[Rfam]
RNA sequence: AGCAAACUGAUGAGGUUAUAUGAUCCAAAGUAUCAGAUGUUGAUACAUCAAAUCAUGGUCUUCAAAGUUCUCUGAUUGUU
Numbered sequence: 001a002g003c004a005a006a007c008u009g010a011u012g013a014g015g016u017u018a019u020a021u022g023a024u025c026c027a028a029a030g031u032a033u034c035a036g037a038u039g040u041u042g043a044u045a046c047a048u049c050a051a052a053u054c055a056u057g058g059u060c061u062u063c064a065a066a067g068u069u070c071u072c073u074g075a076u077u078g079u080u
Base pairs, nucleotide, nucleotide: 001080002079003078004077005076
RNA: Small nucleolar RNA R160
Organism: Miscanthus lutarioriparius